[Rfam]
RNA sequence: UCAGGAAAAGGCAAACUGCGGGAAACUGCAGGACGCAAAGCUACAGGGCCUGUUUAGGGCAGCCAGUUACCGAUG
Numbered sequence: 001u002c003a004g005g006a007a008a009a010g011g012c013a014a015a016c017u018g019c020g021g022g023a024a025a026c027u028g029c030a031g032g033a034c035g036c037a038a039a040g041c042u043a044c045a046g047g048g049c050c051u052g053u054u055u056a057g058g059g060c061a062g063c064c065a066g067u068u069a070c071c072g073a074u075g
Stems, first nucleotide, its partner, number of pairs: 001075001004071001011036002016031006034062001039068004046064002048060003